[Rfam]
RNA sequence: GCUUCUACAAUGGGGGUCAUUGUAGAAGCGUGCUCGUCGCGACCCCUGCCAGUCCUUUUCAGGGCUGCAAUUCUACA
Numbered sequence: 001g002c003u004u005c006u007a008c009a010a011u012g013g014g015g016g017u018c019a020u021u022g023u024a025g026a027a028g029c030g031u032g033c034u035c036g037u038c039g040c041g042a043c044c045c046c047u048g049c050c051a052g053u054c055c056u057u058u059u060c061a062g063g064g065c066u067g068c069a070a071u072u073c074u075a076c077a
Stems, first nucleotide, its partner, number of pairs: 013046006021077007028040003050067007
Dot-bracket structure: ............[[[[[[..((((((((((.......)))]]]]]]...(((((((....)))))))...)))))))

Description: Shown here is a 77-nucleotide sequence from Parnassius apollo, a member of the family "Mammalian CPEB3 ribozyme". Taxonomically the source falls in Parnassius (Eukaryota, Insecta, Dicondylia, Ditrysia). A reference for the family is Salehi-Ashtiani et al. (2006), "A genomewide search for ribozymes reveals an HDV-like sequence in the human CPEB3 gene", Science.